[Rfam]
RNA: Makes More Granules Regulator RNA (mmgR)
Organism: Stappia indica
RNA sequence: UCGCGCCGCCCUCCUUGGGCGUUUCCUCCCUAGACUCGGGCCGCCUCGCAAGAGAGCGGCCCUUUUUUCUGCGCGGC
Numbered sequence: 001u002c003g004c005g006c007c008g009c010c011c012u013c014c015u016u017g018g019g020c021g022u023u024u025c026c027u028c029c030c031u032a033g034a035c036u037c038g039g040g041c042c043g044c045c046u047c048g049c050a051a052g053a054g055a056g057c058g059g060c061c062c063u064u065u066u067u068u069c070u071g072c073g074c075g076g077c
Stems, first nucleotide, its partner, number of pairs: 008020004038062007045054002